[Rfam]
RNA sequence: CUGACCUCAUCCUGACUGUUCCCCUCACUGGAGCUGUGGUGGUGGGGUCUGGGUGUGGUCACAGAUCAACUUACUGCUCUUGUUAGGAGGGCUGCCAAAGACAUGUGCAAGCCCUUAAAGGCAAGAGAGGACACU
Dot-bracket structure: .(((((.(..(.........(((.((((..........)))).).)).....).).)))))............((.(((...((..(((((((((((......)).)).)))))))..))....))).)).....

The family of this 135-nucleotide sequence from Pterocles gutturalis is "Small Cajal body specific RNA 11".
The literature on the family includes a 2002 paper in EMBO J by Darzacq et al., "Cajal body-specific small nuclear RNAs: a novel class of 2'-O-methylation and pseudouridylation guide RNAs".
Rfam links the family to the GO terms RNA processing, nucleolus and Cajal body.
Rfam 15.1 lists 853 matches to the family in 557 species.
By type it is a small Cajal body RNA.
The family's consensus secondary structure was predicted with RNAalifold.
Rfam's curators write: scaRNAs are a specific class of small nuclear RNAs which localise to the Cajal bodies and guide the modification of RNA polymerase II transcribed spliceosomal RNAs U1, U2, U4, U5 and U12. ACA57 belongs to the H/ACA box class of guide RNAs as it has the predicted hairpin-hinge-hairpin-tail structure, conserved H/ACA-box motifs and is found associated with GAR1. ACA57 is predicted to guide the pseudouridylation of the U5 spliceosomal RNA at position U43.